[Rfam]
RNA sequence: UCCUCUGUGAUGAUUGAACAGUAAGACUUUCGUUCUUCUGAGUUUUCUGAAGCCAAUCUUUCUGUUCUGAGAGGA
Numbered sequence: 001u002c003c004u005c006u007g008u009g010a011u012g013a014u015u016g017a018a019c020a021g022u023a024a025g026a027c028u029u030u031c032g033u034u035c036u037u038c039u040g041a042g043u044u045u046u047c048u049g050a051a052g053c054c055a056a057u058c059u060u061u062c063u064g065u066u067c068u069g070a071g072a073g074g075a
Stems, first nucleotide, its partner, number of pairs: 001075003005071001